The record is a 91-nucleotide sequence from Phenylobacterium glaciei, which matches "Glycine riboswitch aptamer" in Rfam. It scores 70 bits against the family's covariance model. The base pairs follow the family's consensus structure.

RNA sequence: UCGACUCUCGCGGGAGAGACCGGGCUUCGAGCCCGGAGCCGAAGGCGCAACCGCCCCGGAAACGCUCAGGCAAACGGACCGCGAAGGCUGA
Numbered sequence: 001u002c003g004a005c006u007c008u009c010g011c012g013g014g015a016g017a018g019a020c021c022g023g024g025c026u027u028c029g030a031g032c033c034c035g036g037a038g039c040c041g042a043a044g045g046c047g048c049a050a051c052c053g054c055c056c057c058g059g060a061a062a063c064g065c066u067c068a069g070g071c072a073a074a075c076g077g078a079c080c081g082c083g084a085a086g087g088c089u090g091a
Stems, first nucleotide, its partner, number of pairs: 006086001008084006020036004038071003041067002045065003051059002